[Rfam]
RNA sequence: UCUUCAUUUUCCACACUCUCUCACCGGUCAGAGAGAGAGGCGAAAGAGUGUGUGAAAUGAAGAGA
Numbered sequence: 001u002c003u004u005c006a007u008u009u010u011c012c013a014c015a016c017u018c019u020c021u022c023a024c025c026g027g028u029c030a031g032a033g034a035g036a037g038a039g040g041c042g043a044a045a046g047a048g049u050g051u052g053u054g055a056a057a058u059g060a061a062g063a064g065a
Base pairs, nucleotide, nucleotide: 001063002062003061004060005059006058007057010054012052013051014050015049016048017047019045021043022042
A member of the RNA family "mir-8364 microRNA precursor family" from Pristionchus pacificus, 65 nucleotides long. The family has 13 seed sequences and 3,320 matches in Rfam 15.1. The base pairs follow the family's consensus structure, which was predicted with RNAalifold.